[Rfam]
RNA sequence: ACACGGGAAAGGAGGUGGUCCAAGAGAUGAUUUCUUCUAGGACGCGUGAGGUGGCUGCCCGCUAGCAGCCCCAGCAGGGACGUCGGGUGGAACCACCCGCGAUGCUGCUGGCGAAUCCCAGGCAGCUACCCGACCCGCAGACGACCGGGACCACGUCCCCCGGUGCGGUGCCUCUCAGGCGCCACGUCUGCGGGUCGCUGCAU
Numbered sequence: 001a002c003a004c005g006g007g008a009a010a011g012g013a014g015g016u017g018g019u020c021c022a023a024g025a026g027a028u029g030a031u032u033u034c035u036u037c038u039a040g041g042a043c044g045c046g047u048g049a050g051g052u053g054g055c056u057g058c059c060c061g062c063u064a065g066c067a068g069c070c071c072c073a074g075c076a077g078g079g080a081c082g083u084c085g086g087g088u089g090g091a092a093c094c095a096c097c098c099g100c101g102a103u104g105c106u107g108c109u110g111g112c113g114a115a116u117c118c119c120a121g122g123c124a125g126c127u128a129c130c131c132g133a134c135c136c137g138c139a140g141a142c143g144a145c146c147g148g149g150a151c152c153a154c155g156u157c158c159c160c161c162g163g164u165g166c167g168g169u170g171c172c173u174c175u176c177a178g179g180c181g182c183c184a185c186g187u188c189u190g191c192g193g194g195u196c197g198c199u200g201c202a203u
Stems, first nucleotide, its partner, number of pairs: 014059006060113007068105002074100002131197013
Shown here is a 203-nucleotide sequence from Nocardioides terrae, a member of the family "Actinobacteria sRNA Ms_IGR-5". Taxonomically the source falls in Nocardioides (Bacteria, Bacillati, Propionibacteriales, Nocardioidaceae). A search with the family's covariance model found it, with a score of 118 bits. The literature on the family includes a 2013 paper in RNA by Li et al., "Identification of small RNAs in Mycobacterium smegmatis using heterologous Hfq".